RNA sequence: CGGUCAAAAAGCUCGUAGUUGGAUUUCGGUGAGCAAGGAGGGGUUCAUCUUGUUUGAUGUAACUGCUAUCUUGUCUCGCGAUUUUUCGGCAGAGGUUUCAACGGUGCCUUUCACUGGGUGUCUUGGGAUACUGUCGGGUUUACUUUGAAAAAAUUAGAGUGCUCAAAGCAGGCUGUUAAAAGCUUGAAUAUUCGUGCAUGGAAUAAUAAAAUAGGAAGUCGUUUCUAUUUUGUUGGUUUUUGGAAAUCGACUUAAUGAUUAAUAGGGACAGUCGGGGGCAUUAGUAUUCAGACGACAGAGGUGAAAUUCUUGGACCGUCUGAAGACUAACUACUGCGAAAGCAUUUGCCAAGAAUGUUUUCAUUAAUCAAGAACGAAAGUUAGAGGUUCGAAGGCGAUCAGAUACCGCCCUAGUUCUAACCAUAAACGAUGCUAACUAGCGAUCCGCAGUUGUUUAUUAUUACGACUCUGCGGGAAGCUUCCGGGAAACCAAAGUACAGUUCCGGGGGAAGUAUGGUUGCAAAGCUGAAACUUAAAAGAAU
Number, nucleotide and partner (000 for none) at each position: 001c504002g503003g502004u000005c000006a000007a000008a000009a501010a000011g374012c000013u372014c371015g000016u000017a000018g367019u366020u365021g000022g000023a000024u000025u000026u000027c000028g000029g000030u000031g000032a000033g000034c000035a000036a000037g000038g000039a000040g000041g000042g000043g000044u000045u000046c000047a000048u000049c000050u000051u000052g000053u000054u000055u000056g000057a000058u000059g000060u000061a000062a000063c000064u000065g000066c000067u000068a000069u000070c000071u000072u000073g000074u000075c000076u000077c000078g000079c000080g000081a000082u000083u000084u000085u000086u000087c000088g000089g000090c000091a000092g000093a000094g000095g000096u000097u000098u000099c000100a000101a000102c000103g000104g000105u000106g000107c000108c000109u000110u000111u000112c000113a000114c000115u000116g000117g000118g000119u000120g000121u000122c000123u000124u000125g000126g000127g000128a000129u000130a000131c000132u000133g000134u000135c000136g000137g000138g000139u000140u000141u000142a000143c000144u000145u000146u000147g000148a000149a000150a000151a000152a000153a000154u000155u000156a000157g000158a000159g000160u000161g000162c000163u000164c000165a000166a000167a000168g000169c000170a000171g000172g000173c000174u000175g000176u000177u000178a000179a000180a000181a000182g000183c000184u000185u000186g000187a000188a000189u000190a000191u000192u000193c000194g000195u000196g000197c000198a000199u000200g000201g000202a000203a000204u000205a000206a000207u000208a000209a000210a000211a000212u000213a000214g000215g000216a000217a000218g000219u000220c000221g000222u000223u000224u000225c000226u000227a000228u000229u000230u000231u000232g000233u000234u000235g000236g000237u000238u000239u000240u000241u000242g000243g000244a000245a000246a000247u000248c000249g000250a000251c000252u000253u000254a000255a000256u000257g000258a000259u000260u000261a000262a000263u000264a000265g361266g360267g359268a358269c356270a355271g000272u353273c352274g000275g000276g000277g349278g348279c347280a346281u000282u000283a327284g326285u000286a000287u323288u322289c321290a320291g319292a318293c317294g316295a000296c000297a000298g309299a308300g307301g000302u000303g000304a000305a000306a000307u300308u299309c298310u000311u000312g000313g000314a000315c000316c294317g293318u292319c291320u290321g289322a288323a287324g000325a000326c284327u283328a000329a000330c000331u000332a000333c000334u000335g342336c341337g000338a000339a000340a000341g336342c335343a000344u000345u000346u280347g279348c278349c277350a000351a000352g273353a272354a000355u270356g269357u000358u268359u267360u266361c265362a000363u000364u000365a020366a019367u018368c000369a000370a000371g014372a013373a000374c011375g000376a000377a000378a000379g420380u419381u418382a417383g416384a415385g000386g000387u000388u000389c413390g000391a000392a000393g409394g408395c407396g406397a000398u000399c000400a000401g000402a000403u000404a000405c000406c396407g395408c394409c393410c000411u000412a000413g389414u000415u384416c383417u382418a381419a380420c379421c000422a000423u000424a000425a000426a000427c000428g000429a000430u000431g500432c499433u498434a000435a495436c494437u000438a479439g478440c477441g000442a000443u474444c473445c472446g471447c470448a469449g468450u000451u000452g466453u465454u464455u000456a000457u000458u000459a000460u000461u000462a000463c000464g454465a453466c452467u000468c449469u448470g447471c446472g445473g444474g443475a000476a000477g440478c439479u438480u000481c000482c000483g490484g489485g000486a000487a000488a000489c484490c483491a000492a000493a000494g436495u435496a000497c000498a433499g432500u431501u009502c003503c002504g001505g000506g533507g532508g531509a000510a000511g000512u000513a000514u000515g526516g525517u524518u523519g000520c000521a000522a000523a518524g517525c516526u515527g000528a000529a000530a000531c508532u507533u506534a000535a000536a000537a000538g000539a000540a000541u000
RNA: Eukaryotic small subunit ribosomal RNA, nucleotides 617 to 1157